[Rfam]
RNA sequence: UUCUCCUUAAAUAAUGAAAGCCCUACCUCUCUUUCAUCCUUACGAUUCCGAGAUCGCGCCAGUACAAAUAAGAAAUUCUUUUAUAUC
Numbered sequence: 001u002u003c004u005c006c007u008u009a010a011a012u013a014a015u016g017a018a019a020g021c022c023c024u025a026c027c028u029c030u031c032u033u034u035c036a037u038c039c040u041u042a043c044g045a046u047u048c049c050g051a052g053a054u055c056g057c058g059c060c061a062g063u064a065c066a067a068a069u070a071a072g073a074a075a076u077u078c079u080u081u082u083a084u085a086u087c
Stems, first nucleotide, its partner, number of pairs: 034067001039062002041058001043056005
The record is an 87-nucleotide RNA from Salirhabdus euzebyi, which matches "BsrC" in Rfam. Rfam's curators write: The 301 nucleotide sequence from Kouji Nakamura has been trimmed to a highly conserved ~85 nucleotide long core to form this family. The source organism's lineage runs through Bacteria, Bacillati, Bacillota, Bacilli and Salirhabdus.